[Rfam]
RNA sequence: GCUUGGCUUAGUUAGGGGGCAUAAAUUAAUUCAAACCCAAAUCUGGGUCUUCAACUGAGGCGUUUUUUAGGGGACUUCCUGUUUUACCGUAAUUGUCCUCCAAGCAGCCUUGGACAUUU
Numbered sequence: 001g002c003u004u005g006g007c008u009u010a011g012u013u014a015g016g017g018g019g020c021a022u023a024a025a026u027u028a029a030u031u032c033a034a035a036c037c038c039a040a041a042u043c044u045g046g047g048u049c050u051u052c053a054a055c056u057g058a059g060g061c062g063u064u065u066u067u068u069a070g071g072g073g074a075c076u077u078c079c080u081g082u083u084u085u086a087c088c089g090u091a092a093u094u095g096u097c098c099u100c101c102a103a104g105c106a107g108c109c110u111u112g113g114a115c116a117u118u119u
Stems, first nucleotide, its partner, number of pairs: 004021002007018003035048004055113007065104003070100006
RNA: Small nucleolar RNA U19